[Rfam]
RNA sequence: GGAGGCAGGCCCUCUGAUAGCGGCUGACAGGAGCAGCUAUCAAACCAGCUUAAGCUGCAUUGGUUAAGAGCCAUUGUAGUGAGCGUUAAGCCAAAAGGUUGUGGCAUGACCACGAUCAGGU
Numbered sequence: 001g002g003a004g005g006c007a008g009g010c011c012c013u014c015u016g017a018u019a020g021c022g023g024c025u026g027a028c029a030g031g032a033g034c035a036g037c038u039a040u041c042a043a044a045c046c047a048g049c050u051u052a053a054g055c056u057g058c059a060u061u062g063g064u065u066a067a068g069a070g071c072c073a074u075u076g077u078a079g080u081g082a083g084c085g086u087u088a089a090g091c092c093a094a095a096a097g098g099u100u101g102u103g104g105c106a107u108g109a110c111c112a113c114g115a116u117c118a119g120g121u
Base pairs, nucleotide, nucleotide: 001015002014003013004012005011016041017040018039019038020037021036023034024033025032046120048091049090050089051088052087053086054080055079057077058076059075061073062072063071064070097117098116099115100114101113102112
Description:
A member of the RNA family "Group II catalytic intron D1-D4-2" from Chitinophaga oryziterrae, 121 nucleotides long. The match comes from Rfam's covariance-model search (104 bits). The base pairs follow the family's consensus structure. About the family: Group II introns are found in rRNA, tRNA and mRNA of organelles in fungi, plants and protists, and also in mRNA in bacteria.